[Rfam]
RNA sequence: GUAUAGGUUGGUGCAAAAGUAAUUGCGGUUUUUGUCAUUACUUUUAAUGGCAAAAACCGCAAUUACUUUUGCACCAACCUAUAC
Number, nucleotide and partner (000 for none) at each position: 001g084002u083003a082004u081005a080006g079007g078008u077009u076010g075011g074012u073013g072014c071015a070016a069017a068018a067019g066020u065021a064022a063023u062024u061025g060026c059027g058028g057029u056030u055031u054032u053033u052034g051035u050036c049037a048038u047039u046040a045041c000042u000043u000044u000045u040046a039047a038048u037049g036050g035051c034052a033053a032054a031055a030056a029057c028058c027059g026060c025061a024062a023063u022064u021065a020066c019067u018068u017069u016070u015071g014072c013073a012074c011075c010076a009077a008078c007079c006080u005081a004082u003083a002084c001

The record is an 84-nucleotide RNA from Aotus nancymaae, which matches "mir-548 microRNA precursor family" in Rfam. NCBI's taxonomy places the organism under Eukaryota, Chordata, Dipnotetrapodomorpha, Simiiformes, Aotus. The family's consensus secondary structure was predicted with WAR. It scores 98 bits against the family's covariance model. Rfam links the family to the GO terms miRNA-mediated post-transcriptional gene silencing and RISC complex.